[Rfam]
RNA sequence: GGGCUUAGUAUAAAAAUUUUAAUUAUCCUAGCGGAUUUCUGUGAGAUUAUUCUUAAUCAGUGAUCUCAUUGUUACACACACUGAAGCCC
Numbered sequence: 001g002g003g004c005u006u007a008g009u010a011u012a013a014a015a016a017u018u019u020u021a022a023u024u025a026u027c028c029u030a031g032c033g034g035a036u037u038u039c040u041g042u043g044a045g046a047u048u049a050u051u052c053u054u055a056a057u058c059a060g061u062g063a064u065c066u067c068a069u070u071g072u073u074a075c076a077c078a079c080a081c082u083g084a085a086g087c088c089c
Stems, first nucleotide, its partner, number of pairs: 001089005
Dot-bracket structure: (((((...............................................................................)))))